The family of this 85-nucleotide RNA from Spinacia oleracea is "Small nucleolar RNA R38". Rfam links the family to the GO terms RNA processing and nucleolus. Rfam's curators write: snoR38 is a C/D box small nucleolar RNA conserved across yeast, human, Arabidopsis and rice. It is encoded in the intron of elongation factor-1 gamma in both pombe and cerevisiae. snoR38 guides the methylation of 2'-O-ribose sites in 28S rRNA.
[Rfam]
RNA sequence: UUAUACAGAUGAUGAGAAAAUUAGAAUUACUUCAGUUAUCCCUGUCUGAUGCUUCUGUGCUGAUCCUUCAUGCUCUAAUGUAUAC
Numbered sequence: 001u002u003a004u005a006c007a008g009a010u011g012a013u014g015a016g017a018a019a020a021u022u023a024g025a026a027u028u029a030c031u032u033c034a035g036u037u038a039u040c041c042c043u044g045u046c047u048g049a050u051g052c053u054u055c056u057g058u059g060c061u062g063a064u065c066c067u068u069c070a071u072g073c074u075c076u077a078a079u080g081u082a083u084a085c
Base pairs, nucleotide, nucleotide: 002084003083004082005081006080007079
Rfam classes the family as a C/D-box small nucleolar RNA. Taxonomically the source falls in Spinacia (Eukaryota, Viridiplantae, Mesangiospermae, Gunneridae). The literature on the family includes a 2003 paper in Nucleic Acids Res by Chen et al., "The high diversity of snoRNAs in plants: identification and comparative study of 120 snoRNA genes from Oryza sativa".